Record summary:
This 100-nucleotide RNA sequence from Leifsonia xyli belongs to the Rfam family "mraW RNA". The family has 45 seed sequences and 851 matches in Rfam 15.1. It scores 66 bits against the family's covariance model.

RNA sequence: UCUAGCGCCUGGCGCCGGACUCCCAGCCAUCCCGACCUGACACCACUUCCCCGGUGUCAGGUCGGGAUGGAUGGGGAUCGGACGCCAGGGGCCGGACCGG
Numbered sequence: 001u002c003u004a005g006c007g008c009c010u011g012g013c014g015c016c017g018g019a020c021u022c023c024c025a026g027c028c029a030u031c032c033c034g035a036c037c038u039g040a041c042a043c044c045a046c047u048u049c050c051c052c053g054g055u056g057u058c059a060g061g062u063c064g065g066g067a068u069g070g071a072u073g074g075g076g077a078u079c080g081g082a083c084g085c086c087a088g089g090g091g092c093c094g095g096a097c098c099g100g
Base pairs, nucleotide, nucleotide: 010087011086012085013084014083016081018079019078021076022075023074024073025072027070028069029068030067031066032065033064034063035062036061037060038059039058040057041056042055043054